[Rfam]
RNA sequence: GGAACGGGCGCGCACCAUUGGGCCGGUGCGCAGGAAUUGUCCCCUCCGUCUUGUGUCAGAGUGUGCAGGCGCCGAGGCCCCGGCGGCGCCCUGC
Numbered sequence: 001g002g003a004a005c006g007g008g009c010g011c012g013c014a015c016c017a018u019u020g021g022g023c024c025g026g027u028g029c030g031c032a033g034g035a036a037u038u039g040u041c042c043c044c045u046c047c048g049u050c051u052u053g054u055g056u057c058a059g060a061g062u063g064u065g066c067a068g069g070c071g072c073c074g075a076g077g078c079c080c081c082g083g084c085g086g087c088g089c090c091c092u093g094c
Base pairs, nucleotide, nucleotide: 001043002042004040005039010031011030012029013028014027015026016025065094066093067092068091069090070088071087072086073085074084
This 94-nucleotide sequence belongs to the Rfam family "Rhodo-rpoB RNA". The family's RNA type in Rfam is cis-regulatory element. It is one of the family's seed sequences. Pairs were carried over by alignment from the consensus structure, which is taken from published work.